[Rfam]
RNA sequence: UUGCCCUCUCGGAGCUUCUCGGUGCUCCGUGGAGUCAACACAGGGGGAUAGAGCAACUCCCCCUCACUAAAACGUAGCGCGGAGCCAUCCCCUCCGCCCUGCAUCCUGUCGUGAGGCACAGAU
Numbered sequence: 001u002u003g004c005c006c007u008c009u010c011g012g013a014g015c016u017u018c019u020c021g022g023u024g025c026u027c028c029g030u031g032g033a034g035u036c037a038a039c040a041c042a043g044g045g046g047g048a049u050a051g052a053g054c055a056a057c058u059c060c061c062c063c064u065c066a067c068u069a070a071a072a073c074g075u076a077g078c079g080c081g082g083a084g085c086c087a088u089c090c091c092c093u094c095c096g097c098c099c100u101g102c103a104u105c106c107u108g109u110c111g112u113g114a115g116g117c118a119c120a121g122a123u
Stems, first nucleotide, its partner, number of pairs: 002050002005047005014039001016037001018034001020031001063115005074102004079097002082094003
The family of this 123-nucleotide RNA sequence from Elachura formosa is "Small nucleolar RNA SNORA26".
The snoRNA HBI-6 belong to the H/ACA family of snoRNAs, guiding the pseudouridylation of position U4522 if the 28S rRNA. HBI-6 is the human orthologue of mouse MBI-6 snoRNA.
Gene Ontology terms of the family: nucleolus and RNA processing.
The source organism's lineage runs through Eukaryota, Saurischia, Neoaves, Passeriformes and Elachura.
It scores 47 bits against the family's covariance model.
Pairs were carried over by alignment from the consensus structure, which was predicted with RNAalifold.
Clan: SNORA27 clan.
The family has 76 seed sequences and 1,943 matches in Rfam 15.1.
For this family Rfam cites "RNomics: an experimental approach that identifies 201 candidates for novel, small, non-messenger RNAs in mouse" (Huttenhofer et al., EMBO J, 2001).